[Rfam]
Shown here is a 129-nucleotide RNA sequence from Gadus morhua, a member of the family "Small nucleolar RNA SNORA14". By type it is an H/ACA-box small nucleolar RNA. The family has 18 seed sequences and 848 matches in Rfam 15.1. Its family is annotated with RNA processing and nucleolus in the Gene Ontology. Lineage of the source: Eukaryota > Bilateria > Gadariae > Gadoidei > Gadus. From the family's description: ACA14 is a member of the H/ACA class of snoRNA that guide the sites of modification of uridines to pseudouridines. The base pairs follow the family's consensus structure, which was predicted with RNAfold.
RNA sequence: ACGCAUCUUUGAAAACCCCUCUUGGACCUUUGUGGCCCACGGGACAAAAAAGGGUGCAAGAGAACGUUUGGAAUUCCAAGGUCGAGAGAUGUGUCAGUUUCUCUCGGCCAUUUCACCUCCAAGACAUCA
Numbered sequence: 001a002c003g004c005a006u007c008u009u010u011g012a013a014a015a016c017c018c019c020u021c022u023u024g025g026a027c028c029u030u031u032g033u034g035g036c037c038c039a040c041g042g043g044a045c046a047a048a049a050a051a052g053g054g055u056g057c058a059a060g061a062g063a064a065c066g067u068u069u070g071g072a073a074u075u076c077c078a079a080g081g082u083c084g085a086g087a088g089a090u091g092u093g094u095c096a097g098u099u100u101c102u103c104u105c106g107g108c109c110a111u112u113u114c115a116c117c118u119c120c121a122a123g124a125c126a127u128c129a
Base pairs, nucleotide, nucleotide: 003057004056005055006054008050009049010048018043019042020041022039024037025036062128063127067123068122069121070120071119072118080109081108082107083106084105085104086103088101089100092097